[Rfam]
RNA sequence: CAUUCCUUUAACGACAGUCCCGUGAGGCUGAGAAGGACUUUGCCCUGCAUAACAGCUUUCCUGUGAGAAGACUGUUUUGUUAUGACGCAGUACAUCCAUCCUCUCAUCCCACCGGACGAGGGGAUUUUUUUU
Numbered sequence: 001c002a003u004u005c006c007u008u009u010a011a012c013g014a015c016a017g018u019c020c021c022g023u024g025a026g027g028c029u030g031a032g033a034a035g036g037a038c039u040u041u042g043c044c045c046u047g048c049a050u051a052a053c054a055g056c057u058u059u060c061c062u063g064u065g066a067g068a069a070g071a072c073u074g075u076u077u078u079g080u081u082a083u084g085a086c087g088c089a090g091u092a093c094a095u096c097c098a099u100c101c102u103c104u105c106a107u108c109c110c111a112c113c114g115g116a117c118g119a120g121g122g123g124a125u126u127u128u129u130u131u132u
Stems, first nucleotide, its partner, number of pairs: 004037006015030005047080003051076005057070004098125008107116003
Annotation: PyrR binding site: a 132-nucleotide sequence from Sinobaca qinghaiensis. It scores 59 bits against the family's covariance model. The base pairs follow the family's consensus structure, which is taken from published work. Taxonomically the source falls in Sinobaca (Bacteria, Bacillati, Caryophanales, Sporolactobacillaceae). From the family's description: This family represents the PyrR binding site and terminator structure. The family's RNA type in Rfam is cis-regulatory element.